[Rfam]
Shown here is a 352-nucleotide sequence from Sphingobium jiangsuense, a member of the family "Alphaproteobacteria transfer-messenger RNA".
The match comes from Rfam's covariance-model search (234 bits).
By type it is a non-coding RNA gene.
Lineage of the source: Bacteria > Pseudomonadati > Sphingomonadales > Sphingobiaceae > Sphingobium.
The family is grouped with related families in Rfam's "tRNA clan".
RNA sequence: CCUCUUUUCAUAUCGGCGCGGCCACCCUAUAUGGAGGAUGUCGGUUUCGGCCGACUAUGGCGAUAAAAUAUGUCGUGUAAUAGAUGCAGCGGACCCGGGGGCAGUACCCGGCGGCUCCACCAUAACAUCCGGCUUCGAAUGGGGCCGGAUGCUCUGACGGGGCCGAACCAGGAUCGACGUGUAUUGAAAGACGAUGUUUUCGCUCGGGCUGAGUAACCCGUUCAAGGCUCAAAACCUAUAAGUGCCAACGACAACGAAGCACUUGCUCUUGCUGCGUAAUUGAGGGCCUCGCGGCCUGACAUUACCCAAAUAGAACGCGGUUGGACCCGCCGGGCAACAGAAGGGUUACAGC
Numbered sequence: 001c002c003u004c005u006u007u008u009c010a011u012a013u014c015g016g017c018g019c020g021g022c023c024a025c026c027c028u029a030u031a032u033g034g035a036g037g038a039u040g041u042c043g044g045u046u047u048c049g050g051c052c053g054a055c056u057a058u059g060g061c062g063a064u065a066a067a068a069u070a071u072g073u074c075g076u077g078u079a080a081u082a083g084a085u086g087c088a089g090c091g092g093a094c095c096c097g098g099g100g101g102c103a104g105u106a107c108c109c110g111g112c113g114g115c116u117c118c119a120c121c122a123u124a125a126c127a128u129c130c131g132g133c134u135u136c137g138a139a140u141g142g143g144g145c146c147g148g149a150u151g152c153u154c155u156g157a158c159g160g161g162g163c164c165g166a167a168c169c170a171g172g173a174u175c176g177a178c179g180u181g182u183a184u185u186g187a188a189a190g191a192c193g194a195u196g197u198u199u200u201c202g203c204u205c206g207g208g209c210u211g212a213g214u215a216a217c218c219c220g221u222u223c224a225a226g227g228c229u230c231a232a233a234a235c236c237u238a239u240a241a242g243u244g245c246c247a248a249c250g251a252c253a254a255c256g257a258a259g260c261a262c263u264u265g266c267u268c269u270u271g272c273u274g275c276g277u278a279a280u281u282g283a284g285g286g287c288c289u290c291g292c293g294g295c296c297u298g299a300c301a302u303u304a305c306c307c308a309a310a311u312a313g314a315a316c317g318c319g320g321u322u323g324g325a326c327c328c329g330c331c332g333g334g335c336a337a338c339a340g341a342a343g344g345g346u347u348a349c350a351g352c
Base pairs, nucleotide, nucleotide: 040055041054042053043052044051059204060203061202062201063200070197071196072195073194074193075192076191085183086182087181089180090179091178095111096110097109098108099107112165113164114163115162116161117160118159205220206219207218208217210231211230212229318332319331320330321329323349325347327345328344
Dot-bracket structure: .......................................(((((......)))))...(((((......(((((((........(((.(((...(((((.......)))))(((((((........................................)))))))............)))))).......)))))))..)))))((((.[[[....))))........]]]......................................................................................((((.[.[.[[))))...........]].].]...